[Rfam]
RNA sequence: UCGGUUGUGAUGAUUAUAAACAAUUCCUCGUUCUGAAUGCUAUUUCAAUGGCAUGACAGACACGUUUACACCCAUAGAAUAUGAGCAUCC
Numbered sequence: 001u002c003g004g005u006u007g008u009g010a011u012g013a014u015u016a017u018a019a020a021c022a023a024u025u026c027c028u029c030g031u032u033c034u035g036a037a038u039g040c041u042a043u044u045u046c047a048a049u050g051g052c053a054u055g056a057c058a059g060a061c062a063c064g065u066u067u068a069c070a071c072c073c074a075u076a077g078a079a080u081a082u083g084a085g086c087a088u089c090c
Stems, first nucleotide, its partner, number of pairs: 003090002006087002
Small nucleolar RNA snoR8a: a 90-nucleotide RNA sequence from Cicer arietinum.
The match comes from Rfam's covariance-model search (92 bits).
NCBI's taxonomy places the organism under Eukaryota, Magnoliopsida, Mesangiospermae, Pentapetalae, Cicer.